A member of the RNA family "Small nucleolar RNA Z102/R77" from Ipomoea nil, 80 nucleotides long. A reference for the family is Barneche et al. (2001), "Identification of 66 box C/D snoRNAs in Arabidopsis thaliana: extensive gene duplications generated multiple isoforms predicting new ribosomal RNA 2'-O-methylation sites", J Mol Biol. The organism belongs to Ipomoea, within Eukaryota. Its family is annotated with nucleolus and RNA processing in the Gene Ontology. Pairs were carried over by alignment from the consensus structure, which was predicted with PFOLD. Its Rfam clan is "SNORD44 clan".

RNA sequence: GAAUGAGGUGAUGAUUAUUACAGCAUGUUGAUGGCUGAUAUGAUGGCAUUUUAUCAUGUAUUAGCUCUAGCUGAUCAUCC
Number, nucleotide and partner (000 for none) at each position: 001g000002a000003a078004u077005g076006a000007g000008g000009u000010g000011a000012u000013g000014a000015u000016u000017a000018u000019u000020a000021c000022a000023g000024c000025a000026u000027g000028u000029u000030g050031a000032u000033g000034g047035c046036u045037g000038a000039u000040a000041u000042g000043a000044u000045g036046g035047c034048a000049u000050u030051u000052u000053a000054u000055c000056a000057u000058g000059u000060a000061u000062u000063a000064g000065c000066u000067c000068u000069a000070g000071c000072u000073g000074a000075u000076c005077a004078u003079c000080c000